This 149-nucleotide RNA sequence from Mediterraneibacter torques belongs to the Rfam family "FMN riboswitch aptamer (RFN element)".

[Rfam]
RNA sequence: UUUAAUCUUCGGGGUAGGGUGCAAGUCCCAACCGGCGGUAUAGUCCGCGACCCGCAUAUGAUGCGGCUGAACUGGUGACUCGUCUGUGAUGGCAUUACAGAAUGGGAAUUCCGGUACCGACAGUAAAGUCUGGAUGAGAGAAGAAGUUC
Numbered sequence: 001u002u003u004a005a006u007c008u009u010c011g012g013g014g015u016a017g018g019g020u021g022c023a024a025g026u027c028c029c030a031a032c033c034g035g036c037g038g039u040a041u042a043g044u045c046c047g048c049g050a051c052c053c054g055c056a057u058a059u060g061a062u063g064c065g066g067c068u069g070a071a072c073u074g075g076u077g078a079c080u081c082g083u084c085u086g087u088g089a090u091g092g093c094a095u096u097a098c099a100g101a102a103u104g105g106g107a108a109u110u111c112c113g114g115u116a117c118c119g120a121c122a123g124u125a126a127a128g129u130c131u132g133g134a135u136g137a138g139a140g141a142a143g144a145a146g147u148u149c
Stems, first nucleotide, its partner, number of pairs: 006144005017029003031129002033119002035048004043117002052066002071115005121132003
Rfam links the family to the GO term FMN binding.